Rfam assigns this 56-nucleotide sequence from [Enterobacter] lignolyticus to the family "Enterobacterial sRNA STnc450".

RNA sequence: CGCUAUAAUAAUCCCCGAAAUCGCCGGUCCAGCGCCUCGGACCGGUUUUUUAGUGU
Numbered sequence: 001c002g003c004u005a006u007a008a009u010a011a012u013c014c015c016c017g018a019a020a021u022c023g024c025c026g027g028u029c030c031a032g033c034g035c036c037u038c039g040g041a042c043c044g045g046u047u048u049u050u051u052a053g054u055g056u
Base pairs, nucleotide, nucleotide: 002012004010005009017050018049019048023046024045025044026043027042028041029040030039